[Rfam]
Rfam assigns this 116-nucleotide sequence from Emticicia sp. TH156 to the family "SAM-I/IV (S-adenosyl methionine) riboswitch aptamer". The organism belongs to Emticicia, within Bacteria. The base pairs follow the family's consensus structure, which is taken from published work.

RNA sequence: CGUAAGUAUCAAGAAAUUCCCUUAUGCGGAAACCCAACCGAGUAGAAACACUACGGUGGUAAAAAGAUGCGGGCAGUAGAACUUUCGUUUUCUAUUUGUCAAAAACAGUUUCUUUU
Numbered sequence: 001c002g003u004a005a006g007u008a009u010c011a012a013g014a015a016a017u018u019c020c021c022u023u024a025u026g027c028g029g030a031a032a033c034c035c036a037a038c039c040g041a042g043u044a045g046a047a048a049c050a051c052u053a054c055g056g057u058g059g060u061a062a063a064a065a066g067a068u069g070c071g072g073g074c075a076g077u078a079g080a081a082c083u084u085u086c087g088u089u090u091u092c093u094a095u096u097u098g099u100c101a102a103a104a105a106c107a108g109u110u111u112c113u114u115u116u
Base pairs, nucleotide, nucleotide: 006070007069008068009067010066017031018030019029020028021026034059035058038056039055040054041052042051043050045112046111047110048109049108072100073099074098075097
Background
On this family, see Weinberg et al., RNA 2008: "The aptamer core of SAM-IV riboswitches mimics the ligand-binding site of SAM-I riboswitches". Gene Ontology terms of the family: regulation of gene expression and S-adenosylmethionine metabolic process.